[Rfam]
RNA sequence: CACGGGCAAUCACGCAAUCCCGGCGGCAGGAGUGGGGGAACCAGGUAAGUGCCGUACGUGGCUGGUCGCACGUACGGCUAGGGGUGAAGCCGUACGCGAACGCCCCCUCGUGUUCGCGUGGGCCGGGCAACUCCAGCCCGAAUCCGACAGCUCACCUCGCAGGCGUAGGAGAGGAACUGC
Number, nucleotide and partner (000 for none) at each position: 001c000002a000003c000004g000005g000006g000007c000008a000009a000010u000011c165012a000013c163014g000015c000016a000017a000018u031019c030020c029021c000022g000023g000024c000025g000026g000027c000028a000029g020030g019031a018032g160033u159034g158035g157036g156037g155038g000039a000040a000041c000042c081043a000044g000045g000046u000047a000048a000049g000050u000051g000052c000053c000054g000055u000056a000057c000058g000059u000060g000061g000062c000063u000064g000065g000066u000067c000068g000069c000070a000071c000072g000073u000074a000075c000076g000077g000078c000079u000080a000081g042082g145083g144084g143085u000086g000087a000088a000089g000090c122091c121092g000093u000094a000095c000096g000097c000098g000099a000100a000101c000102g000103c000104c000105c000106c000107c000108u000109c000110g000111u000112g000113u000114u000115c000116g000117c000118g000119u000120g000121g091122g090123c000124c000125g139126g138127g137128c136129a000130a000131c000132u000133c000134c000135a000136g128137c127138c126139c125140g000141a000142a000143u084144c083145c082146g000147a000148c000149a000150g000151c000152u000153c000154a000155c037156c036157u035158c034159g033160c032161a000162g000163g013164c000165g011166u000167a000168g000169g000170a000171g000172a000173g000174g000175a000176a000177c000178u000179g000180c000

Rfam assigns this 180-nucleotide RNA from Streptomyces sp. WMMB 714 to the family "c-di-AMP riboswitch aptamer (ydaO/yuaA leader)". Rfam links the family to the GO terms regulation of gene expression and cyclic-di-AMP binding. Pairs were carried over by alignment from the consensus structure.